[Rfam]
RNA sequence: CUCCCCGAAAUGUAUUGAGGUACAGCCGUGGAACGGGGCUGCUGGGGGUAAAGCGCUGUUGGCGUGCGGGGGGCGCGAGCCUUACCAAGCGCUGGCAAACUGGGAAUACCAGCAGCCUACACCACGAGUGAGACGGUGGGUGCGAACAUUCAUCGUCAAGAGGGCAACAACCCAGACCCGCCGCUAAGGUCCCGAAGUAUCGGCUCAGUGGGCAAGGGCGUGAUCGGACGGAGACAACCAGGAGGUUGGCUUAGAAGCAGCCACCCUUGAAAGAGUGCGUAACAGCUCACUGGUUUAGUCCGGUUGCAUCGACAAUCCACCGGGGCUAAGUCGAUCACCGAAGCGCGGGAUUAUCCUUUGUGGAUAAUGGUAGGGGAGCGUUGUGGGGGCAUCGAAGCGGGCGCGGAAGCGCAACCCGUGGAGCGACCACAAGUGCGAAU
Numbered sequence: 001c002u003c004c005c006c007g008a009a010a011u012g013u014a015u016u017g018a019g020g021u022a023c024a025g026c027c028g029u030g031g032a033a034c035g036g037g038g039c040u041g042c043u044g045g046g047g048g049u050a051a052a053g054c055g056c057u058g059u060u061g062g063c064g065u066g067c068g069g070g071g072g073g074c075g076c077g078a079g080c081c082u083u084a085c086c087a088a089g090c091g092c093u094g095g096c097a098a099a100c101u102g103g104g105a106a107u108a109c110c111a112g113c114a115g116c117c118u119a120c121a122c123c124a125c126g127a128g129u130g131a132g133a134c135g136g137u138g139g140g141u142g143c144g145a146a147c148a149u150u151c152a153u154c155g156u157c158a159a160g161a162g163g164g165c166a167a168c169a170a171c172c173c174a175g176a177c178c179c180g181c182c183g184c185u186a187a188g189g190u191c192c193c194g195a196a197g198u199a200u201c202g203g204c205u206c207a208g209u210g211g212g213c214a215a216g217g218g219c220g221u222g223a224u225c226g227g228a229c230g231g232a233g234a235c236a237a238c239c240a241g242g243a244g245g246u247u248g249g250c251u252u253a254g255a256a257g258c259a260g261c262c263a264c265c266c267u268u269g270a271a272a273g274a275g276u277g278c279g280u281a282a283c284a285g286c287u288c289a290c291u292g293g294u295u296u297a298g299u300c301c302g303g304u305u306g307c308a309u310c311g312a313c314a315a316u317c318c319a320c321c322g323g324g325g326c327u328a329a330g331u332c333g334a335u336c337a338c339c340g341a342a343g344c345g346c347g348g349g350a351u352u353a354u355c356c357u358u359u360g361u362g363g364a365u366a367a368u369g370g371u372a373g374g375g376g377a378g379c380g381u382u383g384u385g386g387g388g389g390c391a392u393c394g395a396a397g398c399g400g401g402c403g404c405g406g407a408a409g410c411g412c413a414a415c416c417c418g419u420g421g422a423g424c425g426a427c428c429a430c431a432a433g434u435g436c437g438a439a440u
Stems, first nucleotide, its partner, number of pairs: 001378006011024005026128001027126005036120001037117009052101002057097003061093004068086002070083005132157010162173003177349004182345003188339003197336001199335006216310002220307010237294005243267003248262003268272001273288001277286002350368007379435001381432006389424002397419005402411003
RNA: Bacterial large subunit ribosomal RNA, nucleotides 886 to 1325
Organism: Herpetosiphon aurantiacus